This 106-nucleotide sequence from Thinocorus orbignyianus belongs to the Rfam family "Small nucleolar RNA SNORD124".
For this family Rfam cites "snoSeeker: an advanced computational package for screening of guide and orphan snoRNA genes in the human genome" (Yang et al., Nucleic Acids Res, 2006).
A search with the family's covariance model found it, with a score of 48 bits.
RNA sequence: ACUGUGGAAGGGAAGGAUUGGUGUUCCAAAAAGUUCAGAAAGAUAUUGAUCCUGAACCUCAGACCACUGAAAAAUACACUUACUUAUUAACUUCCCUGAAGACAAC
Number, nucleotide and partner (000 for none) at each position: 001a000002c000003u000004g000005u000006g000007g000008a000009a097010g096011g095012g094013a093014a092015g091016g000017a000018u000019u000020g000021g000022u000023g000024u000025u000026c000027c000028a000029a000030a000031a000032a000033g000034u000035u000036c000037a000038g000039a000040a000041a000042g000043a000044u000045a000046u000047u000048g000049a000050u000051c000052c000053u000054g000055a000056a000057c000058c000059u000060c000061a000062g000063a000064c000065c000066a000067c000068u000069g000070a000071a000072a000073a000074a000075u000076a000077c000078a000079c000080u000081u000082a000083c000084u000085u000086a000087u000088u000089a000090a000091c015092u014093u013094c012095c011096c010097u009098g000099a000100a000101g000102a000103c000104a000105a000106c000